[Rfam]
RNA sequence: GUUGUUUAAAGGCAAACCACCCGAAAGCGUGGGACGCAAAACUACAGGGCCCUCGCUAAACACGGCAGGGCAGCCAGGUACCGUA
Numbered sequence: 001g002u003u004g005u006u007u008a009a010a011g012g013c014a015a016a017c018c019a020c021c022c023g024a025a026a027g028c029g030u031g032g033g034a035c036g037c038a039a040a041a042c043u044a045c046a047g048g049g050c051c052c053u054c055g056c057u058a059a060a061c062a063c064g065g066c067a068g069g070g071c072a073g074c075c076a077g078g079u080a081c082c083g084u085a
Stems, first nucleotide, its partner, number of pairs: 012037002017032004022027001040079001042077002047075002049071003056065002